[Rfam]
RNA sequence: GCCGGGAUGAGUUGCGCCGUCCUGCAGCCCGAGCUGUACGGGGGCAUGGUGGUGUGGAACGGAUUUCUCCUGCCGGGUCCCAUCGCUGCGUGUCGAUGGCUUGCCCGCUCCGAGCCUAAAUUCGCAAGUGCGUCUUCUCCGAAGGGAGGUGGCGUGCAGGUGCUGAAGAGGGGGAGAAUGCGCGAGGCGGGAGACCGAGCAGCGAAAACUCCCCGAUCCGGGCAGCGGAGGGAUAACGGGCCUGAGCAUUGGCUGGUGGAUCAGAGAUUGGAAACCAUCACCUUU
Number, nucleotide and partner (000 for none) at each position: 001g045002c044003c043004g023005g022006g021007a020008u019009g018010a000011g000012u000013u000014g000015c000016g000017c000018c009019g008020u007021c006022c005023u004024g000025c000026a000027g000028c042029c041030c040031g039032a000033g000034c000035u000036g000037u000038a000039c031040g030041g029042g028043g003044g002045c001046a000047u000048g285049g284050u000051g282052g281053u280054g279055u277056g276057g275058a000059a000060c000061g000062g000063a268064u267065u266066u265067c264068u263069c000070c259071u258072g257073c256074c255075g254076g253077g000078u000079c251080c000081c000082a249083u248084c000085g247086c246087u000088g000089c000090g000091u000092g000093u000094c000095g000096a000097u000098g242099g241100c240101u239102u238103g237104c000105c232106c231107g000108c230109u229110c228111c227112g226113a000114g223115c222116c221117u220118a000119a000120a217121u216122u215123c162124g161125c160126a000127a000128g157129u156130g155131c154132g153133u152134c151135u000136u149137c148138u147139c146140c145141g000142a000143a000144g000145g140146g139147a138148g137149g136150u000151g134152g133153c132154g131155u130156g129157c128158a000159g000160g125161u124162g123163c168164u000165g000166a000167a000168g163169a000170g213171g212172g211173g210174g209175a000176g000177a000178a000179u206180g000181c204182g203183c202184g000185a000186g000187g000188c197189g196190g195191g000192a000193g000194a000195c190196c189197g188198a000199g000200c000201a000202g183203c182204g181205a000206a179207a000208a000209c174210u173211c172212c171213c170214c000215g122216a121217u120218c000219c000220g117221g116222g115223c114224a000225g000226c112227g111228g110229a109230g108231g106232g105233a000234u000235a000236a000237c103238g102239g101240g100241c099242c098243u000244g000245a000246g086247c085248a083249u082250u000251g079252g000253c076254u075255g074256g073257u072258g071259g070260a000261u000262c000263a068264g067265a066266g065267a064268u063269u000270g000271g000272a000273a000274a000275c057276c056277a055278u000279c054280a053281c052282c051283u000284u049285u048

This 285-nucleotide RNA sequence from Chara braunii belongs to the Rfam family "Plant signal recognition particle RNA". Taxonomically the source falls in Chara (Eukaryota, Streptophyta, Streptophytina, Characeae). Rfam 15.1 lists 4,988 matches to the family in 266 species. By type it is a non-coding RNA gene. The base pairs follow the family's consensus structure, which is taken from published work.